[Rfam]
RNA sequence: UAAGCACCUCGCUAGGCGAGGCUCCUGUACGAACACAGGCCACUGAUCUGACGACGUCGAGAGACGCCCAAGAUCAGGACAGAUCGUCCCGGAUUAAGGGGCGAUCCCAAGUGGCUUCGCCGUAUUCGGCGAUACGUCCUACAGUGCCGAAGCUCUGACGAGAGGGGUGCUCA
Numbered sequence: 001u002a003a004g005c006a007c008c009u010c011g012c013u014a015g016g017c018g019a020g021g022c023u024c025c026u027g028u029a030c031g032a033a034c035a036c037a038g039g040c041c042a043c044u045g046a047u048c049u050g051a052c053g054a055c056g057u058c059g060a061g062a063g064a065c066g067c068c069c070a071a072g073a074u075c076a077g078g079a080c081a082g083a084u085c086g087u088c089c090c091g092g093a094u095u096a097a098g099g100g101g102c103g104a105u106c107c108c109a110a111g112u113g114g115c116u117u118c119g120c121c122g123u124a125u126u127c128g129g130c131g132a133u134a135c136g137u138c139c140u141a142c143a144g145u146g147c148c149g150a151a152g153c154u155c156u157g158a159c160g161a162g163a164g165g166g167g168u169g170c171u172c173a
Base pairs, nucleotide, nucleotide: 005169006168007167008166009165010164011159013097015154016153017152020148021147022146025144026143027142028141029140031138032137039115040114041113042112043111045075046074047073048072049071055066056065057064058063082106083105084104085103088100089099090098117132118131119130
Shown here is a 173-nucleotide sequence from Nocardia panacis, a member of the family "M-box riboswitch aptamer (ykoK leader)".
Pairs were carried over by alignment from the consensus structure.
The match comes from Rfam's covariance-model search (144 bits).
About the family: M-box riboswitch, also know as ykoK leader is described as a metaloregulatory RNA that sense divalent metals and function as a genetic control element of genes related to divalent metal transport in bacteria. It was first reported upstream of the B.subtilis ykoK gene and genes with related functions in other bacteria.